[Rfam]
RNA sequence: UCAAAAGUUCAAGGCCAUAGCAGAAGCUCUCAGAUUGCAGUCCUGUCAGAUUCCAAUGAAUCUGCAAAUUCUGCC
Dot-bracket structure: ............[[[....((((((((.........)).].]]...(((((((....)))))))....)))))).
Numbered sequence: 001u002c003a004a005a006a007g008u009u010c011a012a013g014g015c016c017a018u019a020g021c022a023g024a025a026g027c028u029c030u031c032a033g034a035u036u037g038c039a040g041u042c043c044u045g046u047c048a049g050a051u052u053c054c055a056a057u058g059a060a061u062c063u064g065c066a067a068a069u070u071c072u073g074c075c
Stems, first nucleotide, its partner, number of pairs: 013043002015040001020074006026038002047064007

The record is a 75-nucleotide RNA sequence from Crocodylus porosus, which matches "Mammalian CPEB3 ribozyme" in Rfam. From the family's description: The mammalian CPEB3 ribozyme is a self cleaving RNA located in the second intron of the CPEB3 gene which belongs to a family of genes regulating messenger RNA polyadenylation. For this family Rfam cites "A genomewide search for ribozymes reveals an HDV-like sequence in the human CPEB3 gene" (Salehi-Ashtiani et al., Science, 2006).